[Rfam]
RNA sequence: AUGGCCCGGGAUCGCCCUCCGUCAGCGCGUUGCGCCCACGGGGGCAUUUCCG
Numbered sequence: 001a002u003g004g005c006c007c008g009g010g011a012u013c014g015c016c017c018u019c020c021g022u023c024a025g026c027g028c029g030u031u032g033c034g035c036c037c038a039c040g041g042g043g044g045c046a047u048u049u050c051c052g
Stems, first nucleotide, its partner, number of pairs: 016044007025035004

The record is a 52-nucleotide RNA sequence from Sagittula stellata, which matches "ffh sRNA" in Rfam.
A reference for the family is Meyer et al. (2009), "Identification of candidate structured RNAs in the marine organism 'Candidatus Pelagibacter ubique'", BMC Genomics.
NCBI's taxonomy places the organism under Bacteria, Pseudomonadati, Pseudomonadota, Rhodobacterales, Sagittula stellata.
By type it is a small RNA.
The family's consensus secondary structure is taken from published work.
Rfam's curators put it in the seed alignment.